[Rfam]
RNA sequence: CCAACGGCUCUUUUAAGAGCCAACUACACAUUACUACUAAAGAAA
Numbered sequence: 001c002c003a004a005c006g007g008c009u010c011u012u013u014u015a016a017g018a019g020c021c022a023a024c025u026a027c028a029c030a031u032u033a034c035u036a037c038u039a040a041a042g043a044a045a
Base pairs, nucleotide, nucleotide: 006021007020008019009018010017011016
Dot-bracket structure: .....((((((....))))))........................